[Rfam]
RNA sequence: GGUAAUGAGAGCCGACGCCAAGCCCCGGCUGGUCGGCCGGCAACCCCCGCGCUCGCAUGGGGUGCCCCGGGGAAACCUGGCGGCGAGCGACCGCUUCGCCGCAAAGCGCGGGCC
Numbered sequence: 001g002g003u004a005a006u007g008a009g010a011g012c013c014g015a016c017g018c019c020a021a022g023c024c025c026c027g028g029c030u031g032g033u034c035g036g037c038c039g040g041c042a043a044c045c046c047c048c049g050c051g052c053u054c055g056c057a058u059g060g061g062g063u064g065c066c067c068c069g070g071g072g073a074a075a076c077c078u079g080g081c082g083g084c085g086a087g088c089g090a091c092c093g094c095u096u097c098g099c100c101g102c103a104a105a106g107c108g109c110g111g112g113c114c
Stems, first nucleotide, its partner, number of pairs: 001077003009038001011037006021030002039066003044062003049056001080102008088093001
RNA: SAM (S-adenosyl methionine) riboswitch aptamer